[Rfam]
RNA sequence: CAGGCUCCGGUUCACGGUGCCCGCUUCGAGAGUCGGCCGAUCCGUCGGCGGCUCAGCGGCGAGCAGCGACCCGGCGGCC
Numbered sequence: 001c002a003g004g005c006u007c008c009g010g011u012u013c014a015c016g017g018u019g020c021c022c023g024c025u026u027c028g029a030g031a032g033u034c035g036g037c038c039g040a041u042c043c044g045u046c047g048g049c050g051g052c053u054c055a056g057c058g059g060c061g062a063g064c065a066g067c068g069a070c071c072c073g074g075c076g077g078c079c
Stems, first nucleotide, its partner, number of pairs: 003079003007074004015068002018065003022061004
Dot-bracket structure: ..(((.((((....((.(((.((((................................)))).))).))..))))..)))

This 79-nucleotide RNA from Nakamurella lactea belongs to the Rfam family "L31-Actinobacteria ribosomal protein leader".
On this family, see Eckert and Weinberg, BMC Microbiol 2020: "Discovery of 20 novel ribosomal leader candidates in bacteria and archaea".
The source organism's lineage runs through Bacteria, Bacillati, Actinomycetota, Nakamurella and Nakamurella lactea.
Rfam's curators put it in the seed alignment.
Its Rfam clan is "Ribosomal Protein L31 Leader clan".
The family's RNA type in Rfam is cis-regulatory leader.